[Rfam]
RNA sequence: GCCGGUCCUCGGUAGUGGUCCCCGGGAACAAUCCCCGUGGACUUCGAUCGAAGACCGGC
Numbered sequence: 001g002c003c004g005g006u007c008c009u010c011g012g013u014a015g016u017g018g019u020c021c022c023c024g025g026g027a028a029c030a031a032u033c034c035c036c037g038u039g040g041a042c043u044u045c046g047a048u049c050g051a052a053g054a055c056c057g058g059c
Base pairs, nucleotide, nucleotide: 001059002058003057004056005055006054007053009051010050011049012048013047017043018042019041020040021039023037024036025035026034028032